[Rfam]
RNA sequence: GCGUUCAGGUAAUUGCUGCAUCUUUUGAUGUUGAGGAAAGUCCAUGCUCGCACGGUCUGCGAUGACCGUAGUGUUCGUGCCUAGCCAAUUCAUAAGCUAGGGUAGUUCGGUUUCGACUGAGCUAACGGCAGGGAACGUACCUAAGUCUUUAUAGAUACGGUGCUAAUACCUUGAAAGUGCCACAGUGACGUAGUCUACUUGGAAACAAGUAGAGUGGAACGAGGUAAACCCCACGAGCGAGAAACCCAAAUUUGGUAGGGGAACCUUCUUGGAGGAAUUGAACGAAGAGAAGGACAGGGAGCUUUGCUUCUUGUAGAUAGAUGAUUACCACCGGAGUACGAGGUGAAUAGCCGCUUGUAGUACGAUGGAACAAAACAUGGCUUAUCGAA
Numbered sequence: 001g002c003g004u005u006c007a008g009g010u011a012a013u014u015g016c017u018g019c020a021u022c023u024u025u026u027g028a029u030g031u032u033g034a035g036g037a038a039a040g041u042c043c044a045u046g047c048u049c050g051c052a053c054g055g056u057c058u059g060c061g062a063u064g065a066c067c068g069u070a071g072u073g074u075u076c077g078u079g080c081c082u083a084g085c086c087a088a089u090u091c092a093u094a095a096g097c098u099a100g101g102g103u104a105g106u107u108c109g110g111u112u113u114c115g116a117c118u119g120a121g122c123u124a125a126c127g128g129c130a131g132g133g134a135a136c137g138u139a140c141c142u143a144a145g146u147c148u149u150u151a152u153a154g155a156u157a158c159g160g161u162g163c164u165a166a167u168a169c170c171u172u173g174a175a176a177g178u179g180c181c182a183c184a185g186u187g188a189c190g191u192a193g194u195c196u197a198c199u200u201g202g203a204a205a206c207a208a209g210u211a212g213a214g215u216g217g218a219a220c221g222a223g224g225u226a227a228a229c230c231c232c233a234c235g236a237g238c239g240a241g242a243a244a245c246c247c248a249a250a251u252u253u254g255g256u257a258g259g260g261g262a263a264c265c266u267u268c269u270u271g272g273a274g275g276a277a278u279u280g281a282a283c284g285a286a287g288a289g290a291a292g293g294a295c296a297g298g299g300a301g302c303u304u305u306g307c308u309u310c311u312u313g314u315a316g317a318u319a320g321a322u323g324a325u326u327a328c329c330a331c332c333g334g335a336g337u338a339c340g341a342g343g344u345g346a347a348u349a350g351c352c353g354c355u356u357g358u359a360g361u362a363c364g365a366u367g368g369a370a371c372a373a374a375a376c377a378u379g380g381c382u383u384a385u386c387g388a389a
Base pairs, nucleotide, nucleotide: 004389005388006387007385008329009328010327011326012325013324014323016033018031019030020029021028038383039382040381042380043379044378045377046376047241048240049239050238051237052069053068054067055066056065057064075236076235077234078233079232080101081100082099083098084097085096102126103124104123105122106121107120108119109118110117111116127231128230130171131170132169138162139161140160141159145156146155147154177229178228179225180224181223194213195212196211197210198209199208200207201206245260246259247258264293265292266291267290268289269288270287294314295313296312297311298310299309300308301307302306331368332367333366336363337362338361339360
RNA: Bacterial RNase P class B